[Rfam]
RNA sequence: ACCAUCCUUUUCUUGGGGUUGCGCUACUAUCCAAUGAACGUGUAGUGAGGGUAGUACUGCUAACGCCUACGCAACACAUUCGCAUUAGUUAAAGCUCUGCUUUAUUUUGAUGCAAUUUUUGGAAAA
Numbered sequence: 001a002c003c004a005u006c007c008u009u010u011u012c013u014u015g016g017g018g019u020u021g022c023g024c025u026a027c028u029a030u031c032c033a034a035u036g037a038a039c040g041u042g043u044a045g046u047g048a049g050g051g052u053a054g055u056a057c058u059g060c061u062a063a064c065g066c067c068u069a070c071g072c073a074a075c076a077c078a079u080u081c082g083c084a085u086u087a088g089u090u091a092a093a094g095c096u097c098u099g100c101u102u103u104a105u106u107u108u109g110a111u112g113c114a115a116u117u118u119u120u121g122g123a124a125a126a
Stems, first nucleotide, its partner, number of pairs: 006018004021060003026055007038046002082113006090104006
Annotation:
A member of the RNA family "U4atac minor spliceosomal RNA" from Echinops telfairi, 126 nucleotides long. The source organism's lineage runs through Eukaryota, Eumetazoa, Chordata, Afrotheria and Echinops. The base pairs follow the family's consensus structure, which is taken from published work. The family is grouped with related families in Rfam's "U4 clan".